[Rfam]
RNA sequence: GUGAGGUGAUGACGAAGUUUAUCCAUUCUCUGAGUGCAGUUGUGCUGCCCUCCUGCAGCACCCCGAUGCCUGUUCUAGGGUCUGGGUGCUGUGCAGCCUCCAGAGACCCUCCAGUCUCCCAGUGUCCUACUGGAGGCUGCUGUGGUAUGUGGCUGGCUGCCUGCAGGAGUGAAGUGGUGCUGGCAGGGUUGGAGCCCCUCUUUGAGGGGCUCCUUCCCCACUGAGAUGAGGGAUGAUGUCUGAUCAC
Numbered sequence: 001g002u003g004a005g006g007u008g009a010u011g012a013c014g015a016a017g018u019u020u021a022u023c024c025a026u027u028c029u030c031u032g033a034g035u036g037c038a039g040u041u042g043u044g045c046u047g048c049c050c051u052c053c054u055g056c057a058g059c060a061c062c063c064c065g066a067u068g069c070c071u072g073u074u075c076u077a078g079g080g081u082c083u084g085g086g087u088g089c090u091g092u093g094c095a096g097c098c099u100c101c102a103g104a105g106a107c108c109c110u111c112c113a114g115u116c117u118c119c120c121a122g123u124g125u126c127c128u129a130c131u132g133g134a135g136g137c138u139g140c141u142g143u144g145g146u147a148u149g150u151g152g153c154u155g156g157c158u159g160c161c162u163g164c165a166g167g168a169g170u171g172a173a174g175u176g177g178u179g180c181u182g183g184c185a186g187g188g189u190u191g192g193a194g195c196c197c198c199u200c201u202u203u204g205a206g207g208g209g210c211u212c213c214u215u216c217c218c219c220a221c222u223g224a225g226a227u228g229a230g231g232g233a234u235g236a237u238g239u240c241u242g243a244u245c246a247c
Stems, first nucleotide, its partner, number of pairs: 010246003017239002020236001023232002026230003030225002034221002039184004043179006049171001050169005057090007065082003069079003093160006106146002112139008121131004186218003191213003195209004
Dot-bracket structure: .........(((....((.(..((.(((.((..((...((((((((((((((((..(((((((.(((.(((.....)))))).)))))))..((((((.......((....((((((((.((((...)))))))))))).....))........))))))....))))).)..)))))).)))).(((..(((.((((.......)))).)))..))).))..))..)))))...).))....))).
Shown here is a 247-nucleotide RNA sequence from Nyctibius grandis, a member of the family "Small nucleolar RNA SNORD17". Rfam classes the family as a C/D-box small nucleolar RNA. From the family's description: The snoRNA HBI-43 belongs to the C/D family of snoRNAs, guiding 2'O-ribose methylation at position U3797 of the 28S rRNA. Pseudouridylation in position U3797 is predicted to be guided by the H/ACA snoRNA ACA48. Taxonomically the source falls in Nyctibius (Eukaryota, Euteleostomi, Coelurosauria, Nyctibiidae).